[Rfam]
RNA sequence: AUCCUAUACAGAUGUAUCAACGCAAGAUAGUUGAGCAUCUCCCUGUAGGAUGUAGAUUACUAGAAAUUCUGACAACAAUUUUCAUUGUGUGGCUACGGUCGAAAUGAAAUGAGUCUGGAUGGAAUAGGUUAACCGUAAGACCUUGAGUUGCAAAACUCUAAAAUUGAGCUAGGGAUGUGGAUUUCUUAAAUUCCGUAUUUUCUAGUUACGGUAUU
Numbered sequence: 001a002u003c004c005u006a007u008a009c010a011g012a013u014g015u016a017u018c019a020a021c022g023c024a025a026g027a028u029a030g031u032u033g034a035g036c037a038u039c040u041c042c043c044u045g046u047a048g049g050a051u052g053u054a055g056a057u058u059a060c061u062a063g064a065a066a067u068u069c070u071g072a073c074a075a076c077a078a079u080u081u082u083c084a085u086u087g088u089g090u091g092g093c094u095a096c097g098g099u100c101g102a103a104a105u106g107a108a109a110u111g112a113g114u115c116u117g118g119a120u121g122g123a124a125u126a127g128g129u130u131a132a133c134c135g136u137a138a139g140a141c142c143u144u145g146a147g148u149u150g151c152a153a154a155a156c157u158c159u160a161a162a163a164u165u166g167a168g169c170u171a172g173g174g175a176u177g178u179g180g181a182u183u184u185c186u187u188a189a190a191u192u193c194c195g196u197a198u199u200u201u202c203u204a205g206u207u208a209c210g211g212u213a214u215u
Stems, first nucleotide, its partner, number of pairs: 001051008010040006017034005022028001066120004071115003080109007091100002126143005132212006138164001145158005169205007176197006
IS605-orfB-I RNA: a 215-nucleotide RNA sequence. The sequence is in the family's curated seed alignment.